[Rfam]
RNA sequence: CUAUGAUCUGUAAUAUGGUCAUGGCAAAGGAG
Numbered sequence: 001c002u003a004u005g006a007u008c009u010g011u012a013a014u015a016u017g018g019u020c021a022u023g024g025c026a027a028a029g030g031a032g
Stems, first nucleotide, its partner, number of pairs: 001024005008018003